Background:
This 128-nucleotide RNA from Erinaceus europaeus belongs to the Rfam family "Small nucleolar RNA SNORA3/SNORA45 family". The family's RNA type in Rfam is H/ACA-box small nucleolar RNA. From the family's description: The members of this family belong to the H/ACA class of snoRNAs which are thought to guide the sites of modification of uridines to pseudouridines. This family includes mouse snoMBI-28 and human homologues ACA3 (SNORA3) and ACA3-2 (SNORA45). Both ACA3 and ACA3-2 share the same host gene. MBI-28, ACA3 and ACA3-2 are all predicted to guide the pseudouridylation of residues in 28S rRNA. A search with the family's covariance model found it, with a score of 87 bits. The base pairs follow the family's consensus structure, which was predicted with RNAalifold. Gene Ontology terms of the family: RNA processing and nucleolus. Rfam 15.1 lists 2,080 matches to the family in 639 species. On this family, see Gu et al., Nucleic Acids Res 2005: "A novel experimental approach for systematic identification of box H/ACA snoRNAs from eukaryotes".
[Rfam]
RNA sequence: AUUGAGACUAGUCACGCUUGGGUAUCACCCGUGGCCUUAGUGUGCUAGAGUCCUUGAAGAGUAACUGCUGACAUUAUUCACUGGCUGUGGCCCUCAUGCCAUAGCCAGGCGUCAGGUUAGUGACAUGU
Numbered sequence: 001a002u003u004g005a006g007a008c009u010a011g012u013c014a015c016g017c018u019u020g021g022g023u024a025u026c027a028c029c030c031g032u033g034g035c036c037u038u039a040g041u042g043u044g045c046u047a048g049a050g051u052c053c054u055u056g057a058a059g060a061g062u063a064a065c066u067g068c069u070g071a072c073a074u075u076a077u078u079c080a081c082u083g084g085c086u087g088u089g090g091c092c093c094u095c096a097u098g099c100c101a102u103a104g105c106c107a108g109g110c111g112u113c114a115g116g117u118u119a120g121u122g123a124c125a126u127g128u
Base pairs, nucleotide, nucleotide: 002057003056004055005054006053007051008050009049010046011045013044014043015042016041017040018039021036022035023034068120069119070118071117072116074114081108082107083106084105086103087102088101089100090099091098